This 85-nucleotide RNA from Tupaia belangeri belongs to the Rfam family "Small nucleolar RNA SNORD127". It is annotated as a C/D-box small nucleolar RNA. The sequence is in the family's curated seed alignment. The source organism's lineage runs through Eukaryota, Chordata, Tetrapoda, Eutheria and Tupaia.
[Rfam]
RNA sequence: UGGCAACUGUGAUGAAAGAUUUGGUCUGUAUGUGAUAUAUUUAUUACUAAAUGUGGACAACAGUCCCUCUAAACUGACGUUGCCA
Numbered sequence: 001u002g003g004c005a006a007c008u009g010u011g012a013u014g015a016a017a018g019a020u021u022u023g024g025u026c027u028g029u030a031u032g033u034g035a036u037a038u039a040u041u042u043a044u045u046a047c048u049a050a051a052u053g054u055g056g057a058c059a060a061c062a063g064u065c066c067c068u069c070u071a072a073a074c075u076g077a078c079g080u081u082g083c084c085a
Base pairs, nucleotide, nucleotide: 001085002084003083004082005081006080007079
Dot-bracket structure: (((((((.......................................................................)))))))